[Rfam]
RNA sequence: GGUCUAUUGGUCCAUCUCUGGUAGCUAUAUAUGAGCUCUGACCAGAAAUGCUAUGAUUAGACCAAAAUCAAUAGUGCAUGUCAUUUGAUUCGCAUCUUGAUAGGAAUCUGCUGAUCCUAUAUACUAUGAUUAUGCAGAGCCGAUUUGUGCGAUUACAUUU
Dot-bracket structure: .(((((.((...(((.((.(((.(((.......)))....))).)).)))...).).)))))...........................(((((........((...(((.(((((...........)))))..)))..))......)))))........

This 160-nucleotide sequence from Medicago truncatula belongs to the Rfam family "Small nucleolar RNA snoR2/U65". It is annotated as an H/ACA-box small nucleolar RNA. The source organism's lineage runs through Eukaryota, Streptophyta, Magnoliopsida, Fabaceae and Medicago. The family's consensus secondary structure was predicted with WAR.